Description:
Rfam assigns this 65-nucleotide RNA sequence from Chionoecetes opilio to the family "mir-29 microRNA precursor family". The family's consensus secondary structure was predicted with PFOLD.
RNA sequence: GAUCACUGGAUUUAUAUGGUGCGUGGAGUUGUUUAGCAUCUAGCACCAUGUGAAUUCAGUACAUC
Numbered sequence: 001g002a003u004c005a006c007u008g009g010a011u012u013u014a015u016a017u018g019g020u021g022c023g024u025g026g027a028g029u030u031g032u033u034u035a036g037c038a039u040c041u042a043g044c045a046c047c048a049u050g051u052g053a054a055u056u057c058a059g060u061a062c063a064u065c
Base pairs, nucleotide, nucleotide: 001065002064003063005060006059007058008057009056010055011054012053013052014051016049017048018047019046020045021044024042025041026040027039

From the family's description: This family represents the microRNA (miRNA) precursors mir-29. Lineage of the source: Eukaryota > Pleocyemata > Eubrachyura > Heterotremata > Chionoecetes.